RNA sequence: UGUCUUCUGGGAUGUUUGUAUGUGAACUGUGUCCCUGAGCCGAUAAGUUUUACCUUAGGAAGUUGAUUGUUAACUUUUGAGCAUGCCCGGCUCGUAUCGGGAAGCCUACGGUUGGUAUGAUAUUUCCGCCCUGAACACACGGUGUUCAGGACUCUGUGAGCUGCGGCAUCUUGGAAGACAU
Numbered sequence: 001u002g003u004c005u006u007c008u009g010g011g012a013u014g015u016u017u018g019u020a021u022g023u024g025a026a027c028u029g030u031g032u033c034c035c036u037g038a039g040c041c042g043a044u045a046a047g048u049u050u051u052a053c054c055u056u057a058g059g060a061a062g063u064u065g066a067u068u069g070u071u072a073a074c075u076u077u078u079g080a081g082c083a084u085g086c087c088c089g090g091c092u093c094g095u096a097u098c099g100g101g102a103a104g105c106c107u108a109c110g111g112u113u114g115g116u117a118u119g120a121u122a123u124u125u126c127c128g129c130c131c132u133g134a135a136c137a138c139a140c141g142g143u144g145u146u147c148a149g150g151a152c153u154c155u156g157u158g159a160g161c162u163g164c165g166g167c168a169u170c171u172u173g174g175a176a177g178a179c180a181u
Stems, first nucleotide, its partner, number of pairs: 002179014017165003031152004036148003039143003058127003062123002069116007081105002086101005

Rfam assigns this 181-nucleotide RNA from Colwellia ponticola to the family "6S / SsrS RNA". E. coli 6S RNA was the first non coding RNA to be sequenced, but its function was unknown until recently. It consists of 184 nucleotides that fold into an extended hairpin structure with a large single-stranded internal bulge. The 6S RNA specifically associates with RNA polymerase holoenzyme containing the sigma70 specificity factor. Rfam classes the family as a non-coding RNA gene. The family's consensus secondary structure is taken from published work.